[Rfam]
RNA sequence: AUAUCACAUAAUGAUGAAUGAUUUGGCGGAAGAGUUCUUUGAAGACUAUAUUCAUCACCCAAGACUGAAAAAUGCUU
Numbered sequence: 001a002u003a004u005c006a007c008a009u010a011a012u013g014a015u016g017a018a019u020g021a022u023u024u025g026g027c028g029g030a031a032g033a034g035u036u037c038u039u040u041g042a043a044g045a046c047u048a049u050a051u052u053c054a055u056c057a058c059c060c061a062a063g064a065c066u067g068a069a070a071a072a073u074g075c076u077u
Stems, first nucleotide, its partner, number of pairs: 001073002029037003
Shown here is a 77-nucleotide RNA from Drosophila navojoa, a member of the family "Small nucleolar RNA CD11". The family's consensus secondary structure was predicted with ILM. A reference for the family is Huang et al. (2005), "Genome-wide analyses of two families of snoRNA genes from Drosophila melanogaster, demonstrating the extensive utilization of introns for coding of snoRNAs", RNA. Rfam 15.1 lists 53 matches to the family in 25 species.